[Rfam]
RNA: IS605-orfB-II RNA
RNA sequence: CAUGAUGAGCUGUAAUAGCUUGGAUUGUAUAGCAGGUAGUCGCAGUCGCCUACAUUGAAUAAUUUUUUUUAAUGAAAAAAAGACUCGUUUUAAAUGAAUCUUUUUAAACGUUAGGAUUGUUAUGAUUUUAACGAACUGU
Numbered sequence: 001c002a003u004g005a006u007g008a009g010c011u012g013u014a015a016u017a018g019c020u021u022g023g024a025u026u027g028u029a030u031a032g033c034a035g036g037u038a039g040u041c042g043c044a045g046u047c048g049c050c051u052a053c054a055u056u057g058a059a060u061a062a063u064u065u066u067u068u069u070u071a072a073u074g075a076a077a078a079a080a081a082g083a084c085u086c087g088u089u090u091u092a093a094a095u096g097a098a099u100c101u102u103u104u105u106a107a108a109c110g111u112u113a114g115g116a117u118u119g120u121u122a123u124g125a126u127u128u129u130a131a132c133g134a135a136c137u138g139u
Stems, first nucleotide, its partner, number of pairs: 006022007034051004042139004053074003060071003078104005109133009